Overview: The family of this 95-nucleotide RNA sequence from Thermocatellispora tengchongensis is "Glycine riboswitch aptamer". The organism belongs to Thermocatellispora, within Bacteria. The pairing is the family consensus, mapped onto this sequence.

RNA sequence: CGACCUCUGGAAAGCAGGCCGUUUGGCCUCGCCGAAGGUGAAAGUCCGGCAAAAGCCGGUCGAAUCUCUCAGGCACCGAUGACAGAGGGGGAGGA
Numbered sequence: 001c002g003a004c005c006u007c008u009g010g011a012a013a014g015c016a017g018g019c020c021g022u023u024u025g026g027c028c029u030c031g032c033c034g035a036a037g038g039u040g041a042a043a044g045u046c047c048g049g050c051a052a053a054a055g056c057c058g059g060u061c062g063a064a065u066c067u068c069u070c071a072g073g074c075a076c077c078g079a080u081g082a083c084a085g086a087g088g089g090g091g092a093g094g095a
Stems, first nucleotide, its partner, number of pairs: 004088006016029004031074003034070002038068001040066001044061001